[Rfam]
RNA sequence: GUGAAGGAUAUAAGAGAGAGCUUAAAUUAAGUCGCCGAAGGGACAAGUUUUGUUUUAUCCCAAUUAAACAAAAUGAAAUUCUCAGGCAAAAGGAUUAUAUCUGGAUA
Numbered sequence: 001g002u003g004a005a006g007g008a009u010a011u012a013a014g015a016g017a018g019a020g021c022u023u024a025a026a027u028u029a030a031g032u033c034g035c036c037g038a039a040g041g042g043a044c045a046a047g048u049u050u051u052g053u054u055u056u057a058u059c060c061c062a063a064u065u066a067a068a069c070a071a072a073a074u075g076a077a078a079u080u081c082u083c084a085g086g087c088a089a090a091a092g093g094a095u096u097a098u099a100u101c102u103g104g105a106u107a
Stems, first nucleotide, its partner, number of pairs: 006102008020032004034087003037083002041081003047074009
RNA: Glycine riboswitch aptamer